[Rfam]
RNA: Saccharopolyspora sRNA 350
RNA sequence: CCGUCUGCGUCCACAGUGGAUCGCUCUGGCCGAGGGCCUCGUCGCCGAGCUGGUCGCCGUCGGCGAUGACCCCCAGCAGGUUCUCCCCGCCGUACUUUCCGGUGGUGUACCUGUUGAGGCGGCCGUGGGCGAUGAUGUAGGCCUCGCCGAUGGGCGUGCCCUCCUCGAUGAGGACGUCGCCGGGGGCGAAGGACCGGGGCCGGAACCGCGAGGCGAGCUCGGUCAGCAGCUCCUCGUCGUCGAAGCCGCGCAGCGAGGGCAGUUCGGUGAGGGUGACGGGCACGAUGCGGACGUCGUCGGCGCCGUUCUGGAUGAAGCGGACGCGGCCGCGCCCGACGGUGAUCUGCAGCCGCCGGUUGACCCGGUACGUGCCGCCCUGGGCCUCCACCCAGGGCAGUUUGCGCAGCAGCCAGCGCGAGGUGAUGCCCUGCAUCUGCGGGGCGGACUUGGUGGUGGUGGCCAGGUUGCGGGCCGCGCGGGUACUGAGGCUGGUCUGCGCGUUCUCG
Numbered sequence: 001c002c003g004u005c006u007g008c009g010u011c012c013a014c015a016g017u018g019g020a021u022c023g024c025u026c027u028g029g030c031c032g033a034g035g036g037c038c039u040c041g042u043c044g045c046c047g048a049g050c051u052g053g054u055c056g057c058c059g060u061c062g063g064c065g066a067u068g069a070c071c072c073c074c075a076g077c078a079g080g081u082u083c084u085c086c087c088c089g090c091c092g093u094a095c096u097u098u099c100c101g102g103u104g105g106u107g108u109a110c111c112u113g114u115u116g117a118g119g120c121g122g123c124c125g126u127g128g129g130c131g132a133u134g135a136u137g138u139a140g141g142c143c144u145c146g147c148c149g150a151u152g153g154g155c156g157u158g159c160c161c162u163c164c165u166c167g168a169u170g171a172g173g174a175c176g177u178c179g180c181c182g183g184g185g186g187c188g189a190a191g192g193a194c195c196g197g198g199g200c201c202g203g204a205a206c207c208g209c210g211a212g213g214c215g216a217g218c219u220c221g222g223u224c225a226g227c228a229g230c231u232c233c234u235c236g237u238c239g240u241c242g243a244a245g246c247c248g249c250g251c252a253g254c255g256a257g258g259g260c261a262g263u264u265c266g267g268u269g270a271g272g273g274u275g276a277c278g279g280g281c282a283c284g285a286u287g288c289g290g291a292c293g294u295c296g297u298c299g300g301c302g303c304c305g306u307u308c309u310g311g312a313u314g315a316a317g318c319g320g321a322c323g324c325g326g327c328c329g330c331g332c333c334c335g336a337c338g339g340u341g342a343u344c345u346g347c348a349g350c351c352g353c354c355g356g357u358u359g360a361c362c363c364g365g366u367a368c369g370u371g372c373c374g375c376c377c378u379g380g381g382c383c384u385c386c387a388c389c390c391a392g393g394g395c396a397g398u399u400u401g402c403g404c405a406g407c408a409g410c411c412a413g414c415g416c417g418a419g420g421u422g423a424u425g426c427c428c429u430g431c432a433u434c435u436g437c438g439g440g441g442c443g444g445a446c447u448u449g450g451u452g453g454u455g456g457u458g459g460c461c462a463g464g465u466u467g468c469g470g471g472c473c474g475c476g477c478g479g480g481u482a483c484u485g486a487g488g489c490u491g492g493u494c495u496g497c498g499c500g501u502u503c504u505c506g
Stems, first nucleotide, its partner, number of pairs: 006387002009384001012381001014379001016327002019324001021321001022319004027314002031311001033309005038302001041301004046296003050229002054225001056223004061107002064104001075096002078093001080091001082089001113218003122209002125206002128201003134195001136193001145188002151183001153181003157173001161170001231291003236286005241279001245277001247275003254271001258265001328341003352376001354374003360370002390430007398422001400420001402417003406414001436475004442469002445466001446464006477506001479502003483498001486495002